Rfam assigns this 264-nucleotide RNA from Candidatus Borkfalkia ceftriaxoniphila to the family "Bacterial large signal recognition particle RNA". Lineage of the source: Bacteria > Clostridia > Christensenellales > Christensenellaceae > Candidatus Borkfalkia.
RNA sequence: CUGUGCUAGGUGGGGAGUCAGCGGUGCCCUGUAUCUGCAAUCCGCUACAGCAGAACCGAAUACCGCCCCCGGAUUAGCGCGUGGAAGGCCGCGCUCCGUAAGGGAUGUUGAUUUCAAGGUCUUAUGCAACGGACCGCCGUGAACCGUGUCAGGAUAGGGAUAUAGCAGCACUAAGCGGAUUUGUUCGUGUGCCAUAAGGUAGCUUUGAAGGAGUUACCUGCGGUUUUAACGCUUCGGCGCGUUAUUUCAAAGGCGGUUGCACAG
Numbered sequence: 001c002u003g004u005g006c007u008a009g010g011u012g013g014g015g016a017g018u019c020a021g022c023g024g025u026g027c028c029c030u031g032u033a034u035c036u037g038c039a040a041u042c043c044g045c046u047a048c049a050g051c052a053g054a055a056c057c058g059a060a061u062a063c064c065g066c067c068c069c070c071g072g073a074u075u076a077g078c079g080c081g082u083g084g085a086a087g088g089c090c091g092c093g094c095u096c097c098g099u100a101a102g103g104g105a106u107g108u109u110g111a112u113u114u115c116a117a118g119g120u121c122u123u124a125u126g127c128a129a130c131g132g133a134c135c136g137c138c139g140u141g142a143a144c145c146g147u148g149u150c151a152g153g154a155u156a157g158g159g160a161u162a163u164a165g166c167a168g169c170a171c172u173a174a175g176c177g178g179a180u181u182u183g184u185u186c187g188u189g190u191g192c193c194a195u196a197a198g199g200u201a202g203c204u205u206u207g208a209a210g211g212a213g214u215u216a217c218c219u220g221c222g223g224u225u226u227u228a229a230c231g232c233u234u235c236g237g238c239g240c241g242u243u244a245u246u247u248c249a250a251a252g253g254c255g256g257u258u259g260c261a262c263a264g
Stems, first nucleotide, its partner, number of pairs: 001264006009057003012030004017025003034054005062257006071248003075244001078241005084235004092231002096223004102218002104215003112210009121198006127189002130187005137178004146171004154163003